[Rfam]
RNA sequence: GCCUACCGACAAAUGUCGAGACGAAUACAGCAAACUAUCGAAGCUAAUAUUAUUAAUGAAAUAGGUCGACAUGUAUUCUGUUCUCCUUGUGAGAAGAAAGACAAAGUAAGGUAGCCGUCUACAUAGCAAUAUAUAGACAGGAG
Numbered sequence: 001g002c003c004u005a006c007c008g009a010c011a012a013a014u015g016u017c018g019a020g021a022c023g024a025a026u027a028c029a030g031c032a033a034a035c036u037a038u039c040g041a042a043g044c045u046a047a048u049a050u051u052a053u054u055a056a057u058g059a060a061a062u063a064g065g066u067c068g069a070c071a072u073g074u075a076u077u078c079u080g081u082u083c084u085c086c087u088u089g090u091g092a093g094a095a096g097a098a099a100g101a102c103a104a105a106g107u108a109a110g111g112u113a114g115c116c117g118u119c120u121a122c123a124u125a126g127c128a129a130u131a132u133a134u135a136g137a138c139a140g141g142a143g
Stems, first nucleotide, its partner, number of pairs: 003114005014103004023078006081095004117138003121134001123132003